[Rfam]
RNA sequence: UUCGUCGUGAGGCGUGCAGUGAAGAAAGCGGGACUGCAAAAGCCUGAACUGACGAACAGAAACUGUAUAAGAGGCAGGGAGUCGUGGGUAAGCAAGCACAUCUUUGCAAAGCCCCUGGCCAACAAACGACUCUGUGUAGAUGCAGCAGGAUUAGGUGGAAGGAUAAGCGU
Numbered sequence: 001u002u003c004g005u006c007g008u009g010a011g012g013c014g015u016g017c018a019g020u021g022a023a024g025a026a027a028g029c030g031g032g033a034c035u036g037c038a039a040a041a042g043c044c045u046g047a048a049c050u051g052a053c054g055a056a057c058a059g060a061a062a063c064u065g066u067a068u069a070a071g072a073g074g075c076a077g078g079g080a081g082u083c084g085u086g087g088g089u090a091a092g093c094a095a096g097c098a099c100a101u102c103u104u105u106g107c108a109a110a111g112c113c114c115c116u117g118g119c120c121a122a123c124a125a126a127c128g129a130c131u132c133u134g135u136g137u138a139g140a141u142g143c144a145g146c147a148g149g150a151u152u153a154g155g156u157g158g159a160a161g162g163a164u165a166a167g168c169g170u
Stems, first nucleotide, its partner, number of pairs: 001016001003014004028170003037162001042156005049148003063145006074137003078133007086114004092107004

This 170-nucleotide RNA sequence from Pontibacter qinzhouensis belongs to the Rfam family "Group II catalytic intron D1-D4-3". From the family's description: Group II introns are found in rRNA, tRNA and mRNA of organelles in fungi, plants and protists, and also in mRNA in bacteria. Pairs were carried over by alignment from the consensus structure.